[Rfam]
RNA sequence: ACAAAUCACCAUUCACUACGGAUCGUUCGGCACGUACCUGCCGAUGAAGGGAUUGAAGA
Numbered sequence: 001a002c003a004a005a006u007c008a009c010c011a012u013u014c015a016c017u018a019c020g021g022a023u024c025g026u027u028c029g030g031c032a033c034g035u036a037c038c039u040g041c042c043g044a045u046g047a048a049g050g051g052a053u054u055g056a057a058g059a
Base pairs, nucleotide, nucleotide: 009051010050012048013047014046015045027044028043029042030041031040032039

Shown here is a 59-nucleotide RNA from Arthrobacter terrae, a member of the family "msiK RNA".